[Rfam]
Annotation: Shown here is a 135-nucleotide sequence from Thalassococcus halodurans, a member of the family "Y RNA-like". Lineage of the source: Bacteria > Pseudomonadati > Pseudomonadota > Roseobacteraceae > Thalassococcus. In Deinococcus radiodurans Rsr is tethered via Y RNA to the exoribonuclease PNPase and channels single-stranded RNA into the PNPase cavity. Rsr and Y RNA enhance degradation of structured RNAs by PNPase. This role could be conserved, as Rsr and ncRNAs called YrlA and YrlB (Y RNA like) also associate with PNPase in an evolutionary distant bacterium Salmonella Typhimurium. It scores 75 bits against the family's covariance model. The family's RNA type in Rfam is small RNA.

RNA sequence: UCGGCGAAUGCCGGUGGAACUACAGAGCUGUUACUUCCCGGGUCGCGGGUUCGAAUCCCGUCGUGGCCGCCAACUAUGGCCACGUAGCUCAGUCUGGUAGAGCAGGACGUUUCACCAAACACUUGUCGUCGAGAC
Numbered sequence: 001u002c003g004g005c006g007a008a009u010g011c012c013g014g015u016g017g018a019a020c021u022a023c024a025g026a027g028c029u030g031u032u033a034c035u036u037c038c039c040g041g042g043u044c045g046c047g048g049g050u051u052c053g054a055a056u057c058c059c060g061u062c063g064u065g066g067c068c069g070c071c072a073a074c075u076a077u078g079g080c081c082a083c084g085u086a087g088c089u090c091a092g093u094c095u096g097g098u099a100g101a102g103c104a105g106g107a108c109g110u111u112u113c114a115c116c117a118a119a120c121a122c123u124u125g126u127c128g129u130c131g132a133g134a135c
Stems, first nucleotide, its partner, number of pairs: 002131006013116007023105001045061005052097001062084008087103004